[Rfam]
RNA: THF (Tetrahydrofolate) riboswitch aptamer
RNA sequence: ACAGGAGUAGGGUAAUACGCGUUAAGUGCCAUUGGAACGGAAUGUGAACUUUGGACGAAGAGCUUUUCUCGCGAUGUUUUACCCGCAUUCGCCCUU
Numbered sequence: 001a002c003a004g005g006a007g008u009a010g011g012g013u014a015a016u017a018c019g020c021g022u023u024a025a026g027u028g029c030c031a032u033u034g035g036a037a038c039g040g041a042a043u044g045u046g047a048a049c050u051u052u053g054g055a056c057g058a059a060g061a062g063c064u065u066u067u068c069u070c071g072c073g074a075u076g077u078u079u080u081a082c083c084c085g086c087a088u089u090c091g092c093c094c095u096u
Base pairs, nucleotide, nucleotide: 003095004094005093010084011083012082013081014080015079017077018076019075020073021072022071026056027055029054030053031052034049040090041089042088043087044086060070061069062068